Glycine riboswitch aptamer: a 100-nucleotide sequence from Bellilinea caldifistulae. The organism belongs to Bellilinea, within Bacteria.
[Rfam]
RNA sequence: CCCACAUUCGGGGAAGAGACCAAAUCCAAAUUGGCACCGAAGGGGCAAGGCAAUUUUUCCAUUCGCCGAAUCUCUCAGGUAAAAGGACCCCGGAUGAAUU
Dot-bracket structure: .....((((((((......((((.......)))).(((((..(((...((...............))....))))).))).......)))))))).....